[Rfam]
The record is a 104-nucleotide RNA from Paenibacillus ginsengarvi, which matches "c-di-GMP-I-GGC riboswitch aptamer" in Rfam.
The organism belongs to Paenibacillus, within Bacteria.
The family is grouped with related families in Rfam's "c-di-GMP_I riboswitch clan".
Rfam links the family to the GO term cyclic-di-GMP binding.
RNA sequence: UCGGAUAAAGGCAAACCUGCUCGAAAGACAGGGACGCAAAGCCACGGGUCUACAGCGAGGUGCGGACAAACGUGCGAAUCGCCACGAUAGCCGGGCCGCCCUCA
Numbered sequence: 001u002c003g004g005a006u007a008a009a010g011g012c013a014a015a016c017c018u019g020c021u022c023g024a025a026a027g028a029c030a031g032g033g034a035c036g037c038a039a040a041g042c043c044a045c046g047g048g049u050c051u052a053c054a055g056c057g058a059g060g061u062g063c064g065g066a067c068a069a070a071c072g073u074g075c076g077a078a079u080c081g082c083c084a085c086g087a088u089a090g091c092c093g094g095g096c097c098g099c100c101c102u103c104a
Stems, first nucleotide, its partner, number of pairs: 001104001003101002011037002016032004021028002035090001041096003045093003048088003